RNA: Group I catalytic intron
RNA sequence: UCAACUUCAUAAACUAAAUUGUGACUUCAUGCAGUGAUGCAUGUCGAAAAUUGGGUGAACUGAUGGAAGCCUAACCUGCUCAAUCUCUUGCAGCAAGGUAAUCAUCAGCCAAGUCCUCCAAAGAGUUCUUUAUUCCAAGCCUUAGAUGCGACGCAAGAGGCGCAAGAUCUGUCUUAAGACAGAACCUUGCUCGGAGCCUUGCUCGGAGCUUUGCUCCCCUUGCAUUCCUUUGCAUCUUUAAGGGAUGCACUGGAUGCACCAGAGAGGGUUUUGGGAGAAGAUGUAGGAGGAAAGGUUCAGAGACUAGAAGGUGAGGAACUCAACCAAUAACCCUUCCACGAGCGCCCGACAUCUUUAGCGAUGGCCCUUAGGCCAAGGGAUGGAAACCAUCCAUCAAAGGAUGCUAAAGAUGAUGAUAUAGUCCGACACUCCGUAGAAAUGCGGAG
Numbered sequence: 001u002c003a004a005c006u007u008c009a010u011a012a013a014c015u016a017a018a019u020u021g022u023g024a025c026u027u028c029a030u031g032c033a034g035u036g037a038u039g040c041a042u043g044u045c046g047a048a049a050a051u052u053g054g055g056u057g058a059a060c061u062g063a064u065g066g067a068a069g070c071c072u073a074a075c076c077u078g079c080u081c082a083a084u085c086u087c088u089u090g091c092a093g094c095a096a097g098g099u100a101a102u103c104a105u106c107a108g109c110c111a112a113g114u115c116c117u118c119c120a121a122a123g124a125g126u127u128c129u130u131u132a133u134u135c136c137a138a139g140c141c142u143u144a145g146a147u148g149c150g151a152c153g154c155a156a157g158a159g160g161c162g163c164a165a166g167a168u169c170u171g172u173c174u175u176a177a178g179a180c181a182g183a184a185c186c187u188u189g190c191u192c193g194g195a196g197c198c199u200u201g202c203u204c205g206g207a208g209c210u211u212u213g214c215u216c217c218c219c220u221u222g223c224a225u226u227c228c229u230u231u232g233c234a235u236c237u238u239u240a241a242g243g244g245a246u247g248c249a250c251u252g253g254a255u256g257c258a259c260c261a262g263a264g265a266g267g268g269u270u271u272u273g274g275g276a277g278a279a280g281a282u283g284u285a286g287g288a289g290g291a292a293a294g295g296u297u298c299a300g301a302g303a304c305u306a307g308a309a310g311g312u313g314a315g316g317a318a319c320u321c322a323a324c325c326a327a328u329a330a331c332c333c334u335u336c337c338a339c340g341a342g343c344g345c346c347c348g349a350c351a352u353c354u355u356u357a358g359c360g361a362u363g364g365c366c367c368u369u370a371g372g373c374c375a376a377g378g379g380a381u382g383g384a385a386a387c388c389a390u391c392c393a394u395c396a397a398a399g400g401a402u403g404c405u406a407a408a409g410a411u412g413a414u415g416a417u418a419u420a421g422u423c424c425g426a427c428a429c430u431c432c433g434u435a436g437a438a439a440u441g442c443g444g445a446g
Stems, first nucleotide, its partner, number of pairs: 007024006030041003051349004056344002061107006070098003108296002114290002300424001302423005352410009431444005